[Rfam]
RNA: Eukaryotic small subunit ribosomal RNA, nucleotides 33 to 594
RNA sequence: UGUUUCAAGGACUUAGCCAUGCAUGCCUCAGAAUCACUGCAUUUGCAGGAAUCUGCGCAUGGCUCAUUACAUCAGACGUAAUCUGCCGCAAAAAUCUUGCGGUUUCCGCAAAAUUGGAUAACUUGGCGAAACGCCAAGCUAAUACAUGAACCAACAGGGCGUUCUCCAUUCCAGACGGUGGGCAACCAUUGUCGUGAGACGCCCAGCGAAUGAAUGACAUUAAAACCAAUGCCUUCACUGGCAGUAACACCCAGCAGUGUUGACUCAAUUCAUUCCGUGCGAAAGCCGGCUUGUUCCGGCGUCUUUUGACGAACAACUGCCCUAUCAGCUGGUGAUGGCCGUGUAGUGGACUGCCAUGGCGUUGACGGGAGCGGGGGAUUAGGGUUCGAUUCCGGAGAGGGAGCCUGAGAAAUAGCUACCACUUCUACGGAGGGCAGCAGGCGCGCAAAUUGCCCAAUGUCAAAACAAAACGAUGAGGCAGCGAAAAGAAAUAGAGUUGUCAGUCCAUUUGGAUUGUCAUUUCAAUGGGGGAUAUUUAAACCCAUCCAAUAUCGAGUAACAA
Numbered sequence: 001u002g003u004u005u006c007a008a009g010g011a012c013u014u015a016g017c018c019a020u021g022c023a024u025g026c027c028u029c030a031g032a033a034u035c036a037c038u039g040c041a042u043u044u045g046c047a048g049g050a051a052u053c054u055g056c057g058c059a060u061g062g063c064u065c066a067u068u069a070c071a072u073c074a075g076a077c078g079u080a081a082u083c084u085g086c087c088g089c090a091a092a093a094a095u096c097u098u099g100c101g102g103u104u105u106c107c108g109c110a111a112a113a114u115u116g117g118a119u120a121a122c123u124u125g126g127c128g129a130a131a132c133g134c135c136a137a138g139c140u141a142a143u144a145c146a147u148g149a150a151c152c153a154a155c156a157g158g159g160c161g162u163u164c165u166c167c168a169u170u171c172c173a174g175a176c177g178g179u180g181g182g183c184a185a186c187c188a189u190u191g192u193c194g195u196g197a198g199a200c201g202c203c204c205a206g207c208g209a210a211u212g213a214a215u216g217a218c219a220u221u222a223a224a225a226c227c228a229a230u231g232c233c234u235u236c237a238c239u240g241g242c243a244g245u246a247a248c249a250c251c252c253a254g255c256a257g258u259g260u261u262g263a264c265u266c267a268a269u270u271c272a273u274u275c276c277g278u279g280c281g282a283a284a285g286c287c288g289g290c291u292u293g294u295u296c297c298g299g300c301g302u303c304u305u306u307u308g309a310c311g312a313a314c315a316a317c318u319g320c321c322c323u324a325u326c327a328g329c330u331g332g333u334g335a336u337g338g339c340c341g342u343g344u345a346g347u348g349g350a351c352u353g354c355c356a357u358g359g360c361g362u363u364g365a366c367g368g369g370a371g372c373g374g375g376g377g378a379u380u381a382g383g384g385u386u387c388g389a390u391u392c393c394g395g396a397g398a399g400g401g402a403g404c405c406u407g408a409g410a411a412a413u414a415g416c417u418a419c420c421a422c423u424u425c426u427a428c429g430g431a432g433g434g435c436a437g438c439a440g441g442c443g444c445g446c447a448a449a450u451u452g453c454c455c456a457a458u459g460u461c462a463a464a465a466c467a468a469a470a471c472g473a474u475g476a477g478g479c480a481g482c483g484a485a486a487a488g489a490a491a492u493a494g495a496g497u498u499g500u501c502a503g504u505c506c507a508u509u510u511g512g513a514u515u516g517u518c519a520u521u522u523c524a525a526u527g528g529g530g531g532a533u534a535u536u537u538a539a540a541c542c543c544a545u546c547c548a549a550u551a552u553c554g555a556g557u558a559a560c561a562a
Stems, first nucleotide, its partner, number of pairs: 003489003009482001010444001016442003020439003025056002030054003037048002063397003073319003078314002082312002090307002115146002122138006157204004163198001210273006224261003232241002283302001285300005321369003328360003335357005341351002372394004376387004399420002402417003422433004450480001452479003458475004495522002498519002501516006529553002531550001533549001